Glycine riboswitch aptamer: a 91-nucleotide RNA from Nocardioides antri.
RNA sequence: UGAUCCCGCGCGGGAGAGUCUGGGCCCGACCCAGCGCCGAAGGGGCAAAUCCUCCCCGGAACCUCUCAGGCACCAGGACCGCGCGGACGGG
Number, nucleotide and partner (000 for none) at each position: 001u000002g000003a000004u000005c000006c086007c085008g084009c083010g082011c081012g080013g079014g000015a000016g000017a000018g000019u000020c034021u033022g032023g031024g000025c000026c000027c000028g000029a000030c000031c023032c022033a021034g020035c000036g071037c070038c069039g067040a066041a000042g000043g065044g064045g063046c000047a000048a000049a000050u058051c000052c000053u000054c000055c000056c000057c000058g050059g000060a000061a000062c000063c045064u044065c043066u040067c039068a000069g038070g037071c036072a000073c000074c000075a000076g000077g000078a000079c013080c012081g011082c010083g009084c008085g007086g006087a000088c000089g000090g000091g000
The pairing is the family consensus, mapped onto this sequence. The match comes from Rfam's covariance-model search (70 bits).